[Rfam]
Nucleotides: 142
Base pairs, nucleotide, nucleotide: 020045021044022043023042024041053092054091055090056089057088058083059082060081061080062079063078068073101117102116103115104114105113106112119135120134121133
Number, partner (000 for none) and nucleotide at each position: 001000c002000a003000g004000c005000g006000g007000g008000u009000g010000c011000a012000a013000g014000u015000c016000c017000c018000g019000c020045c021044c022043g023042g024041c025000c026000a027000a028000c029000u030000g031000a032000a033000u034000c035000g036000c037000u038000c039000c040000g041024g042023c043022c044021g045020g046000a047000a048000g049000c050000u051000a052000u053092c054091g055090g056089a057088g058083c059082g060081g061080c062079g063078g064000u065000g066000g067000a068073g069000g070000u071000a072000a073068c074000g075000a076000a077000g078063c079062c080061g081060u082059c083058g084000g085000a086000g087000c088057c089056u090055u091054c092053g093000a094000g095000a096000c097000a098000a099000a100000u101117g102116u103115g104114c105113c106112g107000c108000c109000u110000g111000g112106c113105g114104g115103c116102g117101c118000a119135g120134c121133g122000a123000g124000u125000c126000g127000a128000c129000a130000g131000g132000c133121c134120g135119u136000a137000a138000c139000g140000c141000g142000a

The record is a 142-nucleotide RNA sequence from Singulisphaera acidiphila, which matches "Group II catalytic intron D1-D4-4" in Rfam. The base pairs follow the family's consensus structure. A search with the family's covariance model found it, with a score of 104 bits. From the family's description: Group II introns are found in rRNA, tRNA and mRNA of organelles in fungi, plants and protists, and also in mRNA in bacteria. Rfam 15.1 lists 840 matches to the family in 506 species.